The family of this 90-nucleotide sequence from Artemisia annua is "small nucleolar RNA snoR114".
On this family, see Chen and Wu, Nucleic Acids Res 2009: "Mining small RNA sequencing data: a new approach to identify small nucleolar RNAs in Arabidopsis".
Gene Ontology terms of the family: RNA processing and nucleolus.
[Rfam]
RNA sequence: AAGCUGUGAUGAAAAUUCCAUUUAAAGUGUAAGGUUGGGUCCUUCACAUUUAUCUGUUUCUUCAGAUAUAAUUCAAGUGCUACUGAGCUU
Numbered sequence: 001a002a003g004c005u006g007u008g009a010u011g012a013a014a015a016u017u018c019c020a021u022u023u024a025a026a027g028u029g030u031a032a033g034g035u036u037g038g039g040u041c042c043u044u045c046a047c048a049u050u051u052a053u054c055u056g057u058u059u060c061u062u063c064a065g066a067u068a069u070a071a072u073u074c075a076a077g078u079g080c081u082a083c084u085g086a087g088c089u090u
Base pairs, nucleotide, nucleotide: 001090002089003088004087
Rfam classes the family as a C/D-box small nucleolar RNA.